cow-rumen-3 RNA: a 142-nucleotide sequence. It is annotated as a small RNA.
[Rfam]
RNA sequence: GGGUCGUGUUUAAUGAGCACAACCUUCAUACGUUCGGUGCCGAGAUCGUAAUGGUCUCGAAUACUAGUUGCGCUGAAAUGAUAUGGUGACCAGCAAGUCGAAAAACUGCCGUUUGGGCUGCGUGAGAUGCGCCGGGUCCACC
Numbered sequence: 001g002g003g004u005c006g007u008g009u010u011u012a013a014u015g016a017g018c019a020c021a022a023c024c025u026u027c028a029u030a031c032g033u034u035c036g037g038u039g040c041c042g043a044g045a046u047c048g049u050a051a052u053g054g055u056c057u058c059g060a061a062u063a064c065u066a067g068u069u070g071c072g073c074u075g076a077a078a079u080g081a082u083a084u085g086g087u088g089a090c091c092a093g094c095a096a097g098u099c100g101a102a103a104a105a106c107u108g109c110c111g112u113u114u115g116g117g118c119u120g121c122g123u124g125a126g127a128u129g130c131g132c133c134g135g136g137u138c139c140a141c142c
Base pairs, nucleotide, nucleotide: 001025002024003023004022006020007019008018009017010016031080032079033078034076035075036074037073038072039071040070041059042058043057044056045055046054047053088099089098090097114140115139116138117137118136119135120132121131122130123129
Dot-bracket structure: ((((.(((((.....))))).)))).....(((((((((((((((((.....)))))))..........))))))).))).......(((......)))..............((((((((((.....))))..))))))..
Rfam's curators put it in the seed alignment.